[Rfam]
RNA sequence: CGAUGAGGUAGAGGUUGCGGCUUUUAUGAGUACAGUGAACGAGGCGCAGAGACGUUAAGGACUUCACUCGAAAGGAAAAGUCGCCGAAGUCCGCUCAUUUCUCUGGAUGUGUGGGCUGGGGCUGUCUUCGAAUAGAGGCAGCACUGUCACGACUGCAUUUUGGCAAUCGUGAGGCGCUAUCUUCACG
Numbered sequence: 001c002g003a004u005g006a007g008g009u010a011g012a013g014g015u016u017g018c019g020g021c022u023u024u025u026a027u028g029a030g031u032a033c034a035g036u037g038a039a040c041g042a043g044g045c046g047c048a049g050a051g052a053c054g055u056u057a058a059g060g061a062c063u064u065c066a067c068u069c070g071a072a073a074g075g076a077a078a079a080g081u082c083g084c085c086g087a088a089g090u091c092c093g094c095u096c097a098u099u100u101c102u103c104u105g106g107a108u109g110u111g112u113g114g115g116c117u118g119g120g121g122c123u124g125u126c127u128u129c130g131a132a133u134a135g136a137g138g139c140a141g142c143a144c145u146g147u148c149a150c151g152a153c154u155g156c157a158u159u160u161u162g163g164c165a166a167u168c169g170u171g172a173g174g175c176g177c178u179a180u181c182u183u184c185a186c187g
Base pairs, nucleotide, nucleotide: 006182007181008180009179010178011177017084018083019082020081021080022079023078024077025076034068035067036066037065038064039063088117089116090115091114092113093112094111096109097108098107099106118145119144121142122141123140124139125138126137127136128135147172148171149170150169151168152167

Rfam assigns this 187-nucleotide RNA sequence from Anoxybacteroides amylolyticum to the family "Lysine riboswitch aptamer". Riboswitches are metabolite binding domains within certain messenger RNAs that serve as precision sensors for their corresponding targets. The match comes from Rfam's covariance-model search (124 bits). Lineage of the source: Bacteria > Bacilli > Caryophanales > Anoxybacillaceae > Anoxybacteroides.